[Rfam]
RNA sequence: CUGCUUUACUCUGGAGAGCGCUGCCCAUCGAGGUAGCCACCGAAGGGGCUAACGGCGGCUGAAAACGCCCGCCGGAAAAUCUCAGGUGUCAGGACAGAGGGGUGUUG
Numbered sequence: 001c002u003g004c005u006u007u008a009c010u011c012u013g014g015a016g017a018g019c020g021c022u023g024c025c026c027a028u029c030g031a032g033g034u035a036g037c038c039a040c041c042g043a044a045g046g047g048g049c050u051a052a053c054g055g056c057g058g059c060u061g062a063a064a065a066c067g068c069c070c071g072c073c074g075g076a077a078a079a080u081c082u083c084a085g086g087u088g089u090c091a092g093g094a095c096a097g098a099g100g101g102g103u104g105u106u107g
Base pairs, nucleotide, nucleotide: 006102007101009099010098011097012096013095020037021036022035023034039087040086041085042083043082046081047080053074054073055072056071057070058069
Dot-bracket structure: .....((.(((((......((((..........)))).(((((..((.....((((((..........)))))).....)))).))).......))))).)).....